[Rfam]
RNA: Purine riboswitch aptamer
Organism: Bacillus sp. 7884-1
RNA sequence: AAAUAAUUUGUCGAUUUAACUCGUAUAAUCUUGGGAAUAUGGCCCAAAAGUUUCUACCGAGCCACCGUAAAUGGCUUGACUACGAGGCAGUGUUAAAAACAG
Numbered sequence: 001a002a003a004u005a006a007u008u009u010g011u012c013g014a015u016u017u018a019a020c021u022c023g024u025a026u027a028a029u030c031u032u033g034g035g036a037a038u039a040u041g042g043c044c045c046a047a048a049a050g051u052u053u054c055u056a057c058c059g060a061g062c063c064a065c066c067g068u069a070a071a072u073g074g075c076u077u078g079a080c081u082a083c084g085a086g087g088c089a090g091u092g093u094u095a096a097a098a099a100c101a102g
Stems, first nucleotide, its partner, number of pairs: 020086006029049001031047005058078007
Dot-bracket structure: ...................((((((...(.(((((.......))))).)........(((((((.......)))))))..))))))................